This 54-nucleotide RNA sequence from Conger conger belongs to the Rfam family "UnaL2 LINE 3' element". The literature on the family includes a 2004 paper in RNA by Baba et al., "Solution structure of an RNA stem-loop derived from the 3' conserved region of eel LINE UnaL2".
[Rfam]
RNA sequence: UUUUCACUUUGUUGUAUGUCGCUCUGGAUAAGAGCAUCUGCCAAAUGCCAUUAA
Number, nucleotide and partner (000 for none) at each position: 001u000002u000003u000004u000005c000006a000007c000008u000009u000010u000011g000012u000013u043014g041015u040016a039017u000018g000019u000020c000021g035022c034023u033024c032025u031026g000027g000028a000029u000030a000031a025032g024033a023034g022035c021036a000037u000038c000039u016040g015041c014042c000043a013044a000045a000046u000047g000048c000049c000050a000051u000052u000053a000054a000
Annotation
Rfam describes the family as follows. The eel long interspersed element (LINE) UnaL2 and its partner short interspersed element (SINE) share a conserved 3' tail containing a stem-loop that is critical for their retrotransposition. Presumably, the first step of retrotransposition is the recognition of their 3' tails by UnaL2-encoded reverse transcriptase. The solution structure of a 17-nucleotide RNA derived from the 3' tail of UnaL2 was determined by NMR.